[Rfam]
RNA sequence: GGGUGGGGUAGAGGCGCGAUUUAUAUUAGUACCCAUGUGGAGGCUGGAAGCCUAUGAAAUAUGGUGAAAGGAUACAUCGCCGAAGUUUCAGAUACCAAAAUCUGUUGCUGGGUCUACAUCGAAUAGGUGUAGGACUGUCAUCAUUGUACUUGCUCGGUACUUUGAUGUUGUGCUAUCUCCACG
Numbered sequence: 001g002g003g004u005g006g007g008g009u010a011g012a013g014g015c016g017c018g019a020u021u022u023a024u025a026u027u028a029g030u031a032c033c034c035a036u037g038u039g040g041a042g043g044c045u046g047g048a049a050g051c052c053u054a055u056g057a058a059a060u061a062u063g064g065u066g067a068a069a070g071g072a073u074a075c076a077u078c079g080c081c082g083a084a085g086u087u088u089c090a091g092a093u094a095c096c097a098a099a100a101u102c103u104g105u106u107g108c109u110g111g112g113u114c115u116a117c118a119u120c121g122a123a124u125a126g127g128u129g130u131a132g133g134a135c136u137g138u139c140a141u142c143a144u145u146g147u148a149c150u151u152g153c154u155c156g157g158u159a160c161u162u163u164g165a166u167g168u169u170g171u172g173c174u175a176u177c178u179c180c181a182c183g
Stems, first nucleotide, its partner, number of pairs: 006178006016080005022074003033064006084109003089104005110136002113133008139167005
Dot-bracket structure: .....((((((....(((((.(((........((((((....................)))))).......))).)))))...(((..(((((......)))))..)))((.((((((((.....)))))))).))..(((((...................))))).....)))))).....
Overview:
Rfam assigns this 183-nucleotide RNA from Alkaliphilus oremlandii to the family "Lysine riboswitch aptamer". The match comes from Rfam's covariance-model search (110 bits). The base pairs follow the family's consensus structure, which is taken from published work. Lineage of the source: Bacteria > Peptostreptococcales > Natronincolaceae > Alkaliphilus > Alkaliphilus oremlandii.